[Rfam]
RNA sequence: AUGAUUCUGGUUUCAAUCCAGAGCAGUGUUUUCUUUACAUACAGAUAAUCUAGAAAACUGCAUCUGGAUUGAUCCCAGGGUCAU
Numbered sequence: 001a002u003g004a005u006u007c008u009g010g011u012u013u014c015a016a017u018c019c020a021g022a023g024c025a026g027u028g029u030u031u032u033c034u035u036u037a038c039a040u041a042c043a044g045a046u047a048a049u050c051u052a053g054a055a056a057a058c059u060g061c062a063u064c065u066g067g068a069u070u071g072a073u074c075c076c077a078g079g080g081u082c083a084u
Stems, first nucleotide, its partner, number of pairs: 003082004008077003013072010029057006
The family of this 84-nucleotide RNA sequence from Ornithorhynchus anatinus is "mir-1422 microRNA precursor family". Rfam's curators put it in the seed alignment. The source organism's lineage runs through Eukaryota, Vertebrata, Sarcopterygii, Amniota and Ornithorhynchus. Pairs were carried over by alignment from the consensus structure, which was predicted with RNAalifold.